[Rfam]
RNA sequence: UGGCCUGAAAUGAUGUUCUCAGUUCAUGUCUCUUCUCUGAGCUGUAUGCUGAAGACAGCGAAGUGCAUUUCUGAUCAGGCUU
Numbered sequence: 001u002g003g004c005c006u007g008a009a010a011u012g013a014u015g016u017u018c019u020c021a022g023u024u025c026a027u028g029u030c031u032c033u034u035c036u037c038u039g040a041g042c043u044g045u046a047u048g049c050u051g052a053a054g055a056c057a058g059c060g061a062a063g064u065g066c067a068u069u070u071c072u073g074a075u076c077a078g079g080c081u082u
Stems, first nucleotide, its partner, number of pairs: 002081004
RNA: Small nucleolar RNA SNORD111
Organism: Cephalopterus ornatus